[Rfam]
RNA sequence: ACGAGACGGAGGGGCCGAUCGGCGAGUGCGACCGAUAAAGUGUUCUCGGACGACACCGGGCGCAGCUCCCGAUUCGUCCGCCAAUGAUCAGCCAGCAGCCGCUGCAACCACAGGGAG
Numbered sequence: 001a002c003g004a005g006a007c008g009g010a011g012g013g014g015c016c017g018a019u020c021g022g023c024g025a026g027u028g029c030g031a032c033c034g035a036u037a038a039a040g041u042g043u044u045c046u047c048g049g050a051c052g053a054c055a056c057c058g059g060g061c062g063c064a065g066c067u068c069c070c071g072a073u074u075c076g077u078c079c080g081c082c083a084a085u086g087a088u089c090a091g092c093c094a095g096c097a098g099c100c101g102c103u104g105c106a107a108c109c110a111c112a113g114g115g116a117g
Base pairs, nucleotide, nucleotide: 048079049078050077051076052075053074057071058070059069060068093104094103095102096101
RNA: Streptomyces-metK RNA